[Rfam]
RNA: Plastid-ycf2 5UTR RNA
Nucleotides: 072
Base pairs, nucleotide, nucleotide: 003072004071006069008067010026011025012024013023014022040066041065042064044063045062049061050060051059
Number, partner (000 for none) and nucleotide at each position: 001000g002000u003072g004071c005000a006069u007000c008067u009000a010026g011025u012024a013023g014022g015000a016000a017000u018000u019000g020000a021000a022014c023013c024012u025011a026010c027000g028000a029000a030000u031000u032000u033000g034000c035000c036000a037000a038000u039000u040066a041065u042064g043000a044063g045062u046000u047000g048000g049061g050060u051059g052000c053000u054000u055000u056000a057000a058000c059051c060050a061049u062045g063044u064042c065041a066040u067008a068000u069006a070000g071004g072003c